[Rfam]
This 115-nucleotide RNA sequence belongs to the Rfam family "Group II catalytic intron D1-D4-2". From the family's description: Group II introns are found in rRNA, tRNA and mRNA of organelles in fungi, plants and protists, and also in mRNA in bacteria. The pairing is the family consensus, mapped onto this sequence. The literature on the family includes a 2001 paper in Trends Genet by Bonen and Vogel, "The ins and outs of group II introns".
Nucleotides: 115
Stems, first nucleotide, its partner, number of pairs: 003012002014039006022031002043114002046088006052077002055074007095111002099109002
Number, partner (000 for none) and nucleotide at each position: 001000g002000a003012a004011u005000u006000g007000g008000a009000c010000u011004a012003u013000c014039g015038g016037u017036a018035a019034a020000g021000g022031c023030g024000a025000u026000c027000a028000g029000g030023c031022g032000a033000a034019u035018u036017u037016a038015c039014c040000a041000a042000a043114c044113c045000g046088c047087c048086u049085u050084g051083u052077g053076g054000u055074g056073c057072u058071g059070u060069g061068c062000u063000u064000c065000a066000u067000g068061g069060c070059a071058u072057g073056g074055u075000a076053c077052u078000g079000a080000g081000c082000g083051a084050c085049a086048a087047g088046g089000u090000u091000a092000a093000a094000a095111g096110c097000a098000g099109a100108a101000c102000u103000u104000u105000c106000a107000g108100u109099u110096g111095u112000a113044g114043g115000a